[Rfam]
RNA sequence: GCAACACUCAAAAUCUGGCAGCACUUUUUCUUCCAAUACACAAAAAAGUGCCCCCAGAGUUUGAGUACCAC
Numbered sequence: 001g002c003a004a005c006a007c008u009c010a011a012a013a014u015c016u017g018g019c020a021g022c023a024c025u026u027u028u029u030c031u032u033c034c035a036a037u038a039c040a041c042a043a044a045a046a047a048g049u050g051c052c053c054c055c056a057g058a059g060u061u062u063g064a065g066u067a068c069c070a071c
Stems, first nucleotide, its partner, number of pairs: 006066007015057004021051005027045003

Description: mir-290 microRNA precursor family: a 71-nucleotide sequence from Nannospalax galili. Rfam links the family to the GO terms RISC complex and miRNA-mediated post-transcriptional gene silencing. Lineage of the source: Eukaryota > Tetrapoda > Mammalia > Spalacidae > Nannospalax. A reference for the family is Houbaviy et al. (2003), "Embryonic stem cell-specific MicroRNAs", Dev Cell.